Shown here is a 74-nucleotide RNA sequence from Danaus chrysippus, a member of the family "mir-133 microRNA precursor family". mir-133 was first experimentally characterised in mouse and homologues have since been discovered in several other species. The mature sequence is excised from the 3' arm of the hairpin. The family's consensus secondary structure was predicted with PFOLD. Lineage of the source: Eukaryota > Opisthokonta > Protostomia > Glossata > Anosia. On this family, see Lagos-Quintana et al., Curr Biol 2002: "Identification of tissue-specific microRNAs from mouse".
RNA sequence: UCGCUUUAGCUGGUUGACUUCGGGUCAAAUUGUCAUUACGCUAUCAUUUGGUCCCCUUCAACCAGCUGUAGUUG
Numbered sequence: 001u002c003g004c005u006u007u008a009g010c011u012g013g014u015u016g017a018c019u020u021c022g023g024g025u026c027a028a029a030u031u032g033u034c035a036u037u038a039c040g041c042u043a044u045c046a047u048u049u050g051g052u053c054c055c056c057u058u059c060a061a062c063c064a065g066c067u068g069u070a071g072u073u074g
Stems, first nucleotide, its partner, number of pairs: 003072003008067010022053002025051006
Dot-bracket structure: ..(((..((((((((((....((.((((((...............))))))))....))))))))))..)))..